[Rfam]
RNA sequence: UAAGGACAAAGAAAAAACACAGCCCGGUAGGUAGUCCGGGCGGCCCGCGGCGGCUUAGUAACCUUCGAAAGAUGUCCGUCUUUGUCUCCGGAAUC
Number, nucleotide and partner (000 for none) at each position: 001u000002a000003a000004g087005g086006a085007c084008a083009a082010a081011g080012a000013a000014a000015a000016a000017a000018c000019a000020c000021a000022g041023c040024c039025c038026g037027g036028u000029a000030g000031g000032u000033a000034g000035u000036c027037c026038g025039g024040g023041c022042g055043g054044c053045c052046c000047g000048c000049g000050g000051c000052g045053g044054c043055u042056u000057a000058g000059u000060a000061a000062c000063c000064u000065u072066c071067g000068a000069a000070a000071g066072a065073u000074g000075u000076c000077c000078g000079u000080c011081u010082u009083u008084g007085u006086c005087u004088c000089c000090g000091g000092a000093a000094u000095c000
RNA: azaaromatic riboswitch aptamer (yjdF RNA)
Organism: Breznakiella homolactica